The family of this 156-nucleotide RNA sequence from Populus tomentosa is "MIR2912 microRNA precursor family".
The source organism's lineage runs through Eukaryota, Mesangiospermae, rosids, Salicaceae and Populus.
Gene Ontology terms of the family: RISC complex and miRNA-mediated post-transcriptional gene silencing.
Rfam 15.1 lists 15,051 matches to the family in 15 species.

[Rfam]
RNA sequence: UCUAGAACUCGAGAUAUAGGCUAAACACUGAACAGUGUCUAGGUUGCAAGAUAGAUUCGGACUUCUCCGUUGUUGCUACAAUUUGAACUUGAAAAUAACAUUUUUAAAUCUUGGACUCCUCAUGAAAGUUUUAGGCCUAUGUCUUAGCUUUCCAUC
Number, nucleotide and partner (000 for none) at each position: 001u000002c000003u154004a000005g152006a151007a150008c147009u146010c000011g145012a144013g143014a142015u141016a140017u139018a138019g137020g136021c134022u133023a132024a131025a130026c000027a129028c128029u127030g000031a000032a000033c000034a000035g123036u122037g121038u000039c000040u000041a000042g118043g117044u000045u115046g000047c000048a112049a111050g110051a109052u108053a000054g105055a104056u000057u000058c000059g000060g099061a000062c000063u097064u000065c000066u000067c000068c000069g000070u000071u000072g088073u087074u086075g000076c000077u000078a000079c000080a000081a000082u000083u000084u000085g000086a074087a073088c072089u000090u000091g000092a000093a000094a000095a000096u000097a063098a000099c060100a000101u000102u000103u000104u055105u054106a000107a000108a052109u051110c050111u049112u048113g000114g000115a045116c000117u043118c042119c000120u000121c037122a036123u035124g000125a000126a000127a029128g028129u027130u025131u024132u023133a022134g021135g000136c020137c019138u018139a017140u016141g015142u014143c013144u012145u011146a009147g008148c000149u000150u007151u006152c005153c000154a003155u000156c000